[Rfam]
Shown here is a 51-nucleotide RNA from Galemys pyrenaicus, a member of the family "Guanidine-II riboswitch aptamer (mini-ykkC)". Simpler in structure and has fewer highly conserved nucleotide positions than the ykkC-yxkD leader. Despite this each of its two stem-loop structures directly bind free guanidine. Rfam links the family to the GO term regulation of gene expression. It scores 33 bits against the family's covariance model.

RNA sequence: GUGGGGGGACGACCUCUCACUGCCUCGGGGAACGGUGGGGGGACGACUCUC
Numbered sequence: 001g002u003g004g005g006g007g008g009a010c011g012a013c014c015u016c017u018c019a020c021u022g023c024c025u026c027g028g029g030g031a032a033c034g035g036u037g038g039g040g041g042g043a044c045g046a047c048u049c050u051c
Stems, first nucleotide, its partner, number of pairs: 001020008038051005